[Rfam]
RNA sequence: UCGAAGCUCCAACAAAUGGAUAAGACUUGUUCUUAGUGUCGAGGAGUUUUUGAAUAGAUAAAUAGAAGGAGCAAUAAACUCUUUCUUGUUCUAUCAAGAGGGGUUAUUGCUCCUUUAUU
Number, nucleotide and partner (000 for none) at each position: 001u000002c000003g000004a000005a000006g000007c000008u020009c019010c018011a000012a000013c000014a000015a000016a000017u000018g010019g009020a008021u000022a000023a000024g000025a000026c000027u000028u000029g000030u000031u000032c000033u000034u000035a000036g000037u000038g000039u000040c000041g000042a000043g000044g000045a000046g000047u000048u000049u000050u000051u000052g000053a000054a000055u000056a000057g000058a000059u000060a000061a000062a000063u000064a000065g116066a115067a114068g113069g112070a111071g110072c109073a108074a107075u106076a105077a104078a000079c102080u101081c100082u000083u000084u099085c098086u097087u096088g000089u000090u000091c000092u000093a000094u000095c000096a087097a086098g085099a084100g081101g080102g079103g000104u077105u076106a075107u074108u073109g072110c071111u070112c069113c068114u067115u066116u065117a000118u000119u000
Shown here is a 119-nucleotide RNA sequence from Scutellaria baicalensis, a member of the family "Plastid-psbA-1 3UTR RNA". The family's consensus secondary structure was predicted with LocARNA. It is one of the family's seed sequences. Its Rfam clan is "Plastid-psbA 3UTR RNA clan". The family's RNA type in Rfam is cis-regulatory element. Rfam describes the family as follows. Plastid psbA-1 is a non-coding RNA (ncRNA) present in plastids. It was identified in inverted repeat sequences in the 3 prime untranslate region (3UTR) of photosystem II quinone-binding protein (psbA).